[Rfam]
RNA sequence: UUGGAAAGGAUGACCCUUUCCCCAAAUGAUCGACGCUGAUUCCAACUUUGCGAUAGCUCUACGGAGCCAAGCCAGUAGCUGAUCCAA
Numbered sequence: 001u002u003g004g005a006a007a008g009g010a011u012g013a014c015c016c017u018u019u020c021c022c023c024a025a026a027u028g029a030u031c032g033a034c035g036c037u038g039a040u041u042c043c044a045a046c047u048u049u050g051c052g053a054u055a056g057c058u059c060u061a062c063g064g065a066g067c068c069a070a071g072c073c074a075g076u077a078g079c080u081g082a083u084c085c086a087a
Base pairs, nucleotide, nucleotide: 001087002086003085004084005083

This 87-nucleotide sequence from Klebsormidium nitens belongs to the Rfam family "Small nucleolar RNA Z103". Pairs were carried over by alignment from the consensus structure, which was predicted with PFOLD. Taxonomically the source falls in Klebsormidium (Eukaryota, Viridiplantae, Klebsormidiales, Klebsormidiaceae). A search with the family's covariance model found it, with a score of 55 bits. By type it is a C/D-box small nucleolar RNA.